[Rfam]
RNA sequence: UUUCUAAAUUGAGAAUGUCGCUUGGUUUGUGGUUCCAAGCUAGUCUAAAUAUUAGCCGAGUUCGCAGCCAAAUUAAAAGUGCUCGGAUGAGUGGCGCUGUUUAUCAUGAACGUCCCACGUGCU
Numbered sequence: 001u002u003u004c005u006a007a008a009u010u011g012a013g014a015a016u017g018u019c020g021c022u023u024g025g026u027u028u029g030u031g032g033u034u035c036c037a038a039g040c041u042a043g044u045c046u047a048a049a050u051a052u053u054a055g056c057c058g059a060g061u062u063c064g065c066a067g068c069c070a071a072a073u074u075a076a077a078a079g080u081g082c083u084c085g086g087a088u089g090a091g092u093g094g095c096g097c098u099g100u101u102u103a104u105c106a107u108g109a110a111c112g113u114c115c116c117a118c119g120u121g122c123u
Base pairs, nucleotide, nucleotide: 001014002013003012004011020040021039022038023037024036025035029118030117031116032115043107044106046103047102048101055095056094057093058092060088061087066083067082068081
The record is a 123-nucleotide RNA from Brachionus plicatilis, which matches "RAGATH-11 RNA" in Rfam. It scores 94 bits against the family's covariance model. The base pairs follow the family's consensus structure, which is taken from published work. The family has 10 seed sequences and 87 matches in Rfam 15.1.